This 38-nucleotide sequence from Psychrilyobacter sp. S5 belongs to the Rfam family "Selenocysteine insertion sequence 4". Rfam classes the family as a cis-regulatory element. It scores 60 bits against the family's covariance model. Rfam 15.1 lists 436 matches to the family in 281 species. For this family Rfam cites "Molecular analysis of the grd operon coding for genes of the glycine reductase and of the thioredoxin system from Clostridium sticklandii" (Graentzdoerffer et al., Arch Microbiol, 2001). The base pairs follow the family's consensus structure, which was predicted with PFOLD.
RNA sequence: GGUACUUGUACUCGUUGUGGAACAACGAUGGUAAAAGA
Dot-bracket structure: ....((......((((((...))))))..)).......